[Rfam]
RNA sequence: CUACUGUGCCACCUGGUGAAUGGCUCGGCUCGAGCGCCGACGACGGACGUGCCAAGCUGCGAAAAGCUGUAGGAAGCCGCACGGAGGCUAAGAACUACAGAUCUCCGAAUGGGAAUCCCCCCGCAAUUGCCUCGCGCAAUGGGGAACGCCGAGAACUGAAACAUCUCAGUAUCGGCAGGAACAAAAAGCAAACGCGAUGUCGCUAGUAACGGCGAGUGAACACGACAAAGUCCAAACCGAAGCCCUCACGGGCAAUGUGGUGUAUGGACUGACACUCAUCGUCCGAACCGUCUCAUGAAGUCUCCUGGAACGGAGCAUGAAACAGGGUGACAAUCCCGUAAUGAGAAUCAGUACGACGUGCGUCAGCUCCCGAGUAGCAGGGGUCGGAAAUCCCUUGUGAAUGUCGCGGGCAACGACCGCGAAGACUCAAUACGACUCGAGACCGAUAGCGAACAAGUAGUGUGAACGAACGCUGAAAAGCACCCCGAAAAGGGAGGUGCAAUAGGGCCUGAACUCAGGUGGCGAUGGAGC
Dot-bracket structure: ......((((((((((.....(((..((((((((((.......(((((((........))).....((((((...(((.......)))......))))))...))))...(((....))).....(((((.....)))))......((((((.....((....))......))))).).........((....))...((((......((.....)).....))))..((((....(((..((((....))))....))).........((((......((((..........(((...(.((((......)))))..(...).(((.......)))...)))...........))))...))))...........(((((((........)))))))......(((((.......)))))..)))).....)).)))))).))...............((....))....))...................................).....)))))))))).......
RNA: Archaeal large subunit ribosomal RNA, nucleotides 10 to 540